[Rfam]
RNA sequence: ACUCAACGUUAAUUCUUUAAAAAGGGUAAGUUGAAGUUGUUAAAGCAUGCUGCUAGUGCUAGUUUAUUCUAGUAUCUCGGGCAGACCCUUGAUCAGCUUGUUAGCCCUAAACUUGUUUUUAAGGAGUUU
Numbered sequence: 001a002c003u004c005a006a007c008g009u010u011a012a013u014u015c016u017u018u019a020a021a022a023a024g025g026g027u028a029a030g031u032u033g034a035a036g037u038u039g040u041u042a043a044a045g046c047a048u049g050c051u052g053c054u055a056g057u058g059c060u061a062g063u064u065u066a067u068u069c070u071a072g073u074a075u076c077u078c079g080g081g082c083a084g085a086c087c088c089u090u091g092a093u094c095a096g097c098u099u100g101u102u103a104g105c106c107c108u109a110a111a112c113u114u115g116u117u118u119u120u121a122a123g124g125a126g127u128u129u
Stems, first nucleotide, its partner, number of pairs: 023108005034099005043090003050084004
RNA: 6S-Flavo RNA